[Rfam]
RNA sequence: CAUUUCGACUGAUUUUUCCACUACUAUUAUUUUGUUAUUAUUACUAUUAUUAUUAUUAUUACUAUAAUUGUUAUUAUUACUAUUAUAUAUUGGACUCGAGGACAGUACUCGGCUCCUUCACCAUGUUUUUAAUUUUUGUGGGAACAAGUAAGGAUCGACAUGCAUAGUAAAGAUGAUAACUUUGCUCGAUUAGACACUACCACUAAGAGUUCAUAAUUAAAACACAAACGAUAAUUUUGCUGCUGAAAGCGGUAAUUGCUUAAUUUAAGCACUAUAACUUCAUUGCUACAAGCAUAACUUAGGGAACGUCGGGUUACAGAAGUUUAUUAU
Numbered sequence: 001c002a003u004u005u006c007g008a009c010u011g012a013u014u015u016u017u018c019c020a021c022u023a024c025u026a027u028u029a030u031u032u033u034g035u036u037a038u039u040a041u042u043a044c045u046a047u048u049a050u051u052a053u054u055a056u057u058a059u060u061a062c063u064a065u066a067a068u069u070g071u072u073a074u075u076a077u078u079a080c081u082a083u084u085a086u087a088u089a090u091u092g093g094a095c096u097c098g099a100g101g102a103c104a105g106u107a108c109u110c111g112g113c114u115c116c117u118u119c120a121c122c123a124u125g126u127u128u129u130u131a132a133u134u135u136u137u138g139u140g141g142g143a144a145c146a147a148g149u150a151a152g153g154a155u156c157g158a159c160a161u162g163c164a165u166a167g168u169a170a171a172g173a174u175g176a177u178a179a180c181u182u183u184g185c186u187c188g189a190u191u192a193g194a195c196a197c198u199a200c201c202a203c204u205a206a207g208a209g210u211u212c213a214u215a216a217u218u219a220a221a222a223c224a225c226a227a228a229c230g231a232u233a234a235u236u237u238u239g240c241u242g243c244u245g246a247a248a249g250c251g252g253u254a255a256u257u258g259c260u261u262a263a264u265u266u267a268a269g270c271a272c273u274a275u276a277a278c279u280u281c282a283u284u285g286c287u288a289c290a291a292g293c294a295u296a297a298c299u300u301a302g303g304g305a306a307c308g309u310c311g312g313g314u315u316a317c318a319g320a321a322g323u324u325u326a327u328u329a330u
Stems, first nucleotide, its partner, number of pairs: 040056002043053001062184001064182001070180007086164001088162001091160002096112005114143004119138001188201001190199001193212002196210003295311001297309002301327001303325003